[Rfam]
RNA sequence: CAGACGUGCCGAUCCGUCCACACACGCGCCGUCACAGAGACUGGGUGCCCGUUCACUCGGGUUGUCGCCUGGGGCGCGUGGAGGCCUAAC
Numbered sequence: 001c002a003g004a005c006g007u008g009c010c011g012a013u014c015c016g017u018c019c020a021c022a023c024a025c026g027c028g029c030c031g032u033c034a035c036a037g038a039g040a041c042u043g044g045g046u047g048c049c050c051g052u053u054c055a056c057u058c059g060g061g062u063u064g065u066c067g068c069c070u071g072g073g074g075c076g077c078g079u080g081g082a083g084g085c086c087u088a089a090c
Stems, first nucleotide, its partner, number of pairs: 023080008035071003039066003047062005

Rfam assigns this 90-nucleotide RNA sequence from Allochromatium vinosum to the family "t44 RNA". The family's RNA type in Rfam is small RNA. The match comes from Rfam's covariance-model search (63 bits). The organism belongs to Allochromatium vinosum, within Bacteria. About the family: This family consists of a number of bacterial RNA genes of between 135 and 170 bases in length. The family's consensus secondary structure was predicted with LocARNA.